A member of the RNA family "Acido-Lenti-1 RNA" from Prevotella sp. P5-92, 46 nucleotides long.

RNA sequence: GAUAGGGCUCACGCCCUAUCCUGGGUUAUGUUGCCCCUACGGGGCU
Numbered sequence: 001g002a003u004a005g006g007g008c009u010c011a012c013g014c015c016c017u018a019u020c021c022u023g024g025g026u027u028a029u030g031u032u033g034c035c036c037c038u039a040c041g042g043g044g045c046u
Stems, first nucleotide, its partner, number of pairs: 001020008033045005

By type it is a small RNA. A search with the family's covariance model found it, with a score of 41 bits. Rfam 15.1 lists 2,607 matches to the family in 171 species.